[Rfam]
RNA sequence: UUGCAUUCUUAAACCCUCUUGGUAGCUUCGUUCUAAAGGCUUCCAAGAUAUGAGUGAAUGCUAUAGAGAUUGCAGGGGAGUCCAAAGGGCUUUGCUUUUGUGGCUCAGUCUUAUUUCAUACCUGCGACAUCU
Numbered sequence: 001u002u003g004c005a006u007u008c009u010u011a012a013a014c015c016c017u018c019u020u021g022g023u024a025g026c027u028u029c030g031u032u033c034u035a036a037a038g039g040c041u042u043c044c045a046a047g048a049u050a051u052g053a054g055u056g057a058a059u060g061c062u063a064u065a066g067a068g069a070u071u072g073c074a075g076g077g078g079a080g081u082c083c084a085a086a087g088g089g090c091u092u093u094g095c096u097u098u099u100g101u102g103g104c105u106c107a108g109u110c111u112u113a114u115u116u117c118a119u120a121c122c123u124g125c126g127a128c129a130u131c132u
Base pairs, nucleotide, nucleotide: 003061004060005059006058008054009053010052011051017048018047019046020045021044022043024041025040026039065132066131067130070127071126072125073124074123075122076121086112087111088110089109090108091107094104095103

Source information: This 132-nucleotide RNA sequence from Delphinapterus leucas belongs to the Rfam family "Small nucleolar RNA SNORA14". The family's RNA type in Rfam is H/ACA-box small nucleolar RNA. The base pairs follow the family's consensus structure, which was predicted with RNAfold. Rfam describes the family as follows. ACA14 is a member of the H/ACA class of snoRNA that guide the sites of modification of uridines to pseudouridines. Rfam links the family to the GO terms nucleolus and RNA processing.